[Rfam]
Nucleotides: 100
Base pairs, nucleotide, nucleotide: 019085020084021083022082023081024080025079029048030047031046032045033044034043035042057076059074060073061072062071063070
Number, partner (000 for none) and nucleotide at each position: 001000a002000u003000u004000a005000a006000a007000a008000a009000u010000u011000u012000a013000a014000u015000u016000a017000a018000c019085u020084u021083u022082c023081g024080u025079a026000u027000a028000a029048u030047u031046c032045c033044g034043g035042g036000a037000a038000u039000u040000g041000g042035c043034c044033c045032g046031g047030a048029a049000g050000u051000c052000u053000c054000u055000a056000c057076u058000c059074g060073g061072u062071c063070a064000c065000c066000g067000u068000a069000a070063u071062g072061a073060c074059c075000a076057g077000g078000c079025u080024a081023c082022g083021a084020a085019a086000u087000u088000u089000c090000a091000g092000g093000g094000u095000g096000c097000g098000a099000g100000c